[Rfam]
RNA sequence: GGGUGCAUAGCUUAGUGGUAAAGCGAAUUGCUUUUAACAAUUUGACAAGUGUUCGAUUCACUUUGCGCCUU
Numbered sequence: 001g002g003g004u005g006c007a008u009a010g011c012u013u014a015g016u017g018g019u020a021a022a023g024c025g026a027a028u029u030g031c032u033u034u035u036a037a038c039a040a041u042u043u044g045a046c047a048a049g050u051g052u053u054c055g056a057u058u059c060a061c062u063u064u065g066c067g068c069c070u071u
Stems, first nucleotide, its partner, number of pairs: 001070007010024004026042005047063005